[Rfam]
Shown here is a 146-nucleotide RNA from Chelativorans sp. BNC1, a member of the family "Alphaproteobacterial sRNA ar45".
The sequence is in the family's curated seed alignment.
By type it is a small RNA.
RNA sequence: GCCCAAAGUCGCACGUGCCUGUGGGUGUCCGCCGGGCCUCGAAAUGGCGAGGAAACCGGUACGGUACCUGGACCUAACCGCUCCAGUCGAUCUUACGGCCAACCGAAGAUCGAGGACAUCUUGAAGCAACGACGGUGCGGGCCUUU
Numbered sequence: 001g002c003c004c005a006a007a008g009u010c011g012c013a014c015g016u017g018c019c020u021g022u023g024g025g026u027g028u029c030c031g032c033c034g035g036g037c038c039u040c041g042a043a044a045u046g047g048c049g050a051g052g053a054a055a056c057c058g059g060u061a062c063g064g065u066a067c068c069u070g071g072a073c074c075u076a077a078c079c080g081c082u083c084c085a086g087u088c089g090a091u092c093u094u095a096c097g098g099c100c101a102a103c104c105g106a107a108g109a110u111c112g113a114g115g116a117c118a119u120c121u122u123g124a125a126g127c128a129a130c131g132a133c134g135g136u137g138c139g140g141g142c143c144u145u146u
Base pairs, nucleotide, nucleotide: 001142002141003140004139008133009132010131011130016128017127018126023121024120025119026118027117028116029115030114031060032059033058034057035056037052038051039050040049041048068086069085070084071083072082087113088112089111090110093106096105097104098103